Rfam assigns this 47-nucleotide RNA to the family "Plastid-rpl16 group II-D1 intron". The base pairs follow the family's consensus structure, which was predicted with LocARNA. The sequence is in the family's curated seed alignment. On this family, see Richter et al., Plant Commun 2023: "Retrograde signaling in plants: A critical review focusing on the GUN pathway and beyond". Its family is annotated with Group II intron splicing in the Gene Ontology. Rfam describes the family as follows. Plastid-rpl16 is a non-coding RNA (ncRNA) recognised in plastids.
RNA sequence: AAGAGCCUGGGGUUAAUAAAGACUAAGAAGGUUGACUCAAGAAUAAA
Numbered sequence: 001a002a003g004a005g006c007c008u009g010g011g012g013u014u015a016a017u018a019a020a021g022a023c024u025a026a027g028a029a030g031g032u033u034g035a036c037u038c039a040a041g042a043a044u045a046a047a
Base pairs, nucleotide, nucleotide: 007041008040010038011037012036013035014034015033016032017031